[Rfam]
RNA: sRNA regulator of biofilms A
Organism: Pseudomonas aeruginosa
RNA sequence: AUCAGGGGCUCUGAAACGACGAGCUCCCGGUGCCUGCGCCGAUACGCCCUCGGCCUCCACCGUGUUGAUCUGCCCACAAGGCGGCUUGACGAGAUUGCGACUGGAACGAAGUUGUCCUGAGGGACGGGGAAGCGUUUACGUAUCAGCCAGAUCGAAAGACUCGACAGCGAGUCGCCCACCGGCAACCACGAGCCGAACGGCACUUGAUCCAGUCGAGAAGCACGGUCCGCGAACUGUUC
Numbered sequence: 001a002u003c004a005g006g007g008g009c010u011c012u013g014a015a016a017c018g019a020c021g022a023g024c025u026c027c028c029g030g031u032g033c034c035u036g037c038g039c040c041g042a043u044a045c046g047c048c049c050u051c052g053g054c055c056u057c058c059a060c061c062g063u064g065u066u067g068a069u070c071u072g073c074c075c076a077c078a079a080g081g082c083g084g085c086u087u088g089a090c091g092a093g094a095u096u097g098c099g100a101c102u103g104g105a106a107c108g109a110a111g112u113u114g115u116c117c118u119g120a121g122g123g124a125c126g127g128g129g130a131a132g133c134g135u136u137u138a139c140g141u142a143u144c145a146g147c148c149a150g151a152u153c154g155a156a157a158g159a160c161u162c163g164a165c166a167g168c169g170a171g172u173c174g175c176c177c178a179c180c181g182g183c184a185a186c187c188a189c190g191a192g193c194c195g196a197a198c199g200g201c202a203c204u205u206g207a208u209c210c211a212g213u214c215g216a217g218a219a220g221c222a223c224g225g226u227c228c229g230c231g232a233a234c235u236g237u238u239c
Stems, first nucleotide, its partner, number of pairs: 005027007031059002038054003042050001061154002064152003072082003084139001088136004117129002162169002174201003180195004210229001212227001214225001